The record is a 90-nucleotide RNA sequence from Escherichia coli, which matches "Escherichia coli small RNA (uptR) gene" in Rfam. The sequence is in the family's curated seed alignment. Pairs were carried over by alignment from the consensus structure. From the family's description: UptR scRNA transcribed from the uptR gene is implicated in suppressing extracytoplasmic toxicity by reducing the amount of membrane-bound toxic hybrid protein. On this family, see Guigueno et al., J Bacteriol 2001: "Oversynthesis of a new Escherichia coli small RNA suppresses export toxicity of DsbA'-PhoA unfoldable periplasmic proteins".

[Rfam]
RNA sequence: GCUGAAUAUGAUUCAAUAUCGCACGCUACUCAUCCAUCCCAGGAUAAUGAGUACAUAGGUUGAAGUUUCACCCCCCACUACGGGGAUGUU
Number, nucleotide and partner (000 for none) at each position: 001g000002c000003u000004g014005a013006a012007u011008a000009u000010g000011a007012u006013u005014c004015a000016a000017u000018a000019u000020c000021g000022c000023a000024c000025g000026c000027u000028a052029c051030u050031c049032a048033u044034c043035c042036a000037u000038c000039c000040c000041a000042g035043g034044a033045u000046a000047a000048u032049g031050a030051g029052u028053a000054c000055a000056u000057a000058g000059g000060u000061u000062g000063a000064a000065g000066u000067u000068u000069c000070a000071c000072c088073c085074c084075c083076c082077a000078c000079u000080a000081c000082g076083g075084g074085g073086a000087u000088g072089u000090u000